The record is a 99-nucleotide RNA sequence from Hafnia alvei, which matches "Plasmid-encoded Shigella sRNA A" in Rfam.
NCBI's taxonomy places the organism under Bacteria, Pseudomonadati, Pseudomonadota, Hafniaceae, Hafnia alvei.
The match comes from Rfam's covariance-model search (69 bits).
The family's RNA type in Rfam is small RNA.
RNA sequence: UGGCUGAGAAAAGAGUUUUAAUGUUUAAAAAAAGAGAUCAUCCUUACGCGUUAUGAUCUCGAAGCGACAGGCACAAAACGGAGAGAAACUAUGUUUGAA
Dot-bracket structure: ((.(((.(....(((.(((((((.........................))))).)).)))....)..))).)).....((((.(.......).))))..